[Rfam]
RNA sequence: AUGAUUCAAGGUGAUGGAGCUCACCAAUAACCGCCUGUAAAGGGAUAAUGGCUCCUGUGAAUCG
Numbered sequence: 001a002u003g004a005u006u007c008a009a010g011g012u013g014a015u016g017g018a019g020c021u022c023a024c025c026a027a028u029a030a031c032c033g034c035c036u037g038u039a040a041a042g043g044g045a046u047a048a049u050g051g052c053u054c055c056u057g058u059g060a061a062u063c064g
Stems, first nucleotide, its partner, number of pairs: 010025004016055006034044003